[Rfam]
RNA sequence: GGUUUAGCACUCCCCCCUAUAGUGCCUAUUCCAUAUCUAUUAACUUGGUUACAUUAUCUUUCCUGUGACAUUUUGCCCCUUACGUUUGGGGCUUUUUUU
Numbered sequence: 001g002g003u004u005u006a007g008c009a010c011u012c013c014c015c016c017c018u019a020u021a022g023u024g025c026c027u028a029u030u031c032c033a034u035a036u037c038u039a040u041u042a043a044c045u046u047g048g049u050u051a052c053a054u055u056a057u058c059u060u061u062c063c064u065g066u067g068a069c070a071u072u073u074u075g076c077c078c079c080u081u082a083c084g085u086u087u088g089g090g091g092c093u094u095u096u097u098u099u
Stems, first nucleotide, its partner, number of pairs: 002032001007025005048069006075092005
Dot-bracket structure: .(....(((((.........)))))......)...............((((((..........)))))).....(((((........))))).......
Shown here is a 99-nucleotide RNA from Vibrio cholerae, a member of the family "Vibrio ToxT activated RNA TarA".
The sequence is in the family's curated seed alignment.
By type it is a small RNA.
Its family is annotated with regulation of gene expression in the Gene Ontology.
The family's consensus secondary structure is taken from published work.
Lineage of the source: Bacteria > Pseudomonadota > Vibrionaceae > Vibrio > Vibrio cholerae O1.
On this family, see Bardill and Hammer, RNA Biol 2012: "Non-coding sRNAs regulate virulence in the bacterial pathogen Vibrio cholerae".